RNA: FMN riboswitch aptamer (RFN element)
Organism: Salicibibacter halophilus
RNA sequence: AAAAAACUUCGGGGCAGGGUGAAAGUCCCUACCGGCGGUGACAGUCCGUGACCCGGUUUGCGCUUGCAAAACGGUGGAUCUGGUGGAACUCCAGAGCCGACAGUGAAAGUCUGGAUGGGAGAAGUUUAAG
Number, nucleotide and partner (000 for none) at each position: 001a000002a000003a000004a127005a126006a125007c124008u123009u122010c121011g000012g000013g000014g000015c000016a000017g029018g028019g027020u000021g000022a000023a000024a000025g000026u000027c019028c018029c017030u000031a110032c109033c099034g098035g049036c048037g047038g046039u000040g000041a000042c000043a000044g097045u096046c038047c037048g036049u035050g000051a000052c000053c074054c073055g000056g000057u000058u000059u000060g000061c000062g000063c000064u000065u000066g000067c000068a000069a000070a000071a000072c000073g054074g053075u000076g000077g000078a000079u095080c094081u093082g092083g091084u000085g000086g000087a000088a000089c000090u000091c083092c082093a081094g080095a079096g045097c044098c034099g033100a000101c113102a112103g111104u000105g000106a000107a000108a000109g032110u031111c103112u102113g101114g000115a000116u000117g000118g000119g000120a000121g010122a009123a008124g007125u006126u005127u004128a000129a000130g000